[Rfam]
RNA sequence: GACGUAUGAUGUACAUUCUCACGAUGGUCUUCCAAGCCCCAAUGGUGAAGGGGCUUUGACGAGAGUGUCCAAUAGGACCUUACUGACGUCAGCUC
Numbered sequence: 001g002a003c004g005u006a007u008g009a010u011g012u013a014c015a016u017u018c019u020c021a022c023g024a025u026g027g028u029c030u031u032c033c034a035a036g037c038c039c040c041a042a043u044g045g046u047g048a049a050g051g052g053g054c055u056u057u058g059a060c061g062a063g064a065g066u067g068u069c070c071a072a073u074a075g076g077a078c079c080u081u082a083c084u085g086a087c088g089u090c091a092g093c094u095c
Stems, first nucleotide, its partner, number of pairs: 001090004

This 95-nucleotide sequence from Podarcis muralis belongs to the Rfam family "Small nucleolar RNA SNORD35". For this family Rfam cites "Intron-encoded, antisense small nucleolar RNAs: the characterization of nine novel species points to their direct role as guides for the 2'-O-ribose methylation of rRNAs" (Nicoloso et al., J Mol Biol, 1996). Rfam's curators write: U35 is a C/D box snoRNA located in intron 6 of ribosomal protein L13A and intron 3 of ribosomal protein S11 in humans and at homologous positions in mouse and chicken ribosomal protein genes. Clan: SNORD35 clan.